[Rfam]
RNA sequence: GCGGUAGGCUAAGACGACCGCGUUGGUAUCAGCGAUGAUAUUACCGAGGAAAGUCCGGGCUCCUGCGGGCAGCGUAGCACCUAACGGGUGUCCAUCGCAAGAUGAGGACUAGUGCCACAGAGACGAUGUACAGGUUCUGGCUUUAAGAAUGCUGUAGUGAAAAGAGGUAAACUCUGCGCGGAGCAAGGGCAAAUAGAGGACGAGAGCGCCCGCCUCGUUAGCCGUCCCGGGUUGCCUGCUGGAGUCUGUCGGCGACGGCAGACCUAGAUAAAUGGUCGUUUGCAAAACAGAACCCGGCUUACCAGCCUGCCGUAGGG
Numbered sequence: 001g002c003g004g005u006a007g008g009c010u011a012a013g014a015c016g017a018c019c020g021c022g023u024u025g026g027u028a029u030c031a032g033c034g035a036u037g038a039u040a041u042u043a044c045c046g047a048g049g050a051a052a053g054u055c056c057g058g059g060c061u062c063c064u065g066c067g068g069g070c071a072g073c074g075u076a077g078c079a080c081c082u083a084a085c086g087g088g089u090g091u092c093c094a095u096c097g098c099a100a101g102a103u104g105a106g107g108a109c110u111a112g113u114g115c116c117a118c119a120g121a122g123a124c125g126a127u128g129u130a131c132a133g134g135u136u137c138u139g140g141c142u143u144u145a146a147g148a149a150u151g152c153u154g155u156a157g158u159g160a161a162a163a164g165a166g167g168u169a170a171a172c173u174c175u176g177c178g179c180g181g182a183g184c185a186a187g188g189g190c191a192a193a194u195a196g197a198g199g200a201c202g203a204g205a206g207c208g209c210c211c212g213c214c215u216c217g218u219u220a221g222c223c224g225u226c227c228c229g230g231g232u233u234g235c236c237u238g239c240u241g242g243a244g245u246c247u248g249u250c251g252g253c254g255a256c257g258g259c260a261g262a263c264c265u266a267g268a269u270a271a272a273u274g275g276u277c278g279u280u281u282g283c284a285a286a287a288c289a290g291a292a293c294c295c296g297g298c299u300u301a302c303c304a305g306c307c308u309g310c311c312g313u314a315g316g317g
Stems, first nucleotide, its partner, number of pairs: 001313010013280007021046002024043006051300003055297005060183004067216003072179005077091005092106001093104004107174002112172002114168003129156005134150004187237004198227005207221001211217001244263008
Rfam assigns this 317-nucleotide RNA sequence from Candidatus Termititenax persephonae to the family "Bacterial RNase P class A". Lineage of the source: Bacteria > Candidatus Margulisiibacteriota > Candidatus Termititenacia > Candidatus Termititenacales > Candidatus Termititenax. By type it is a ribozyme.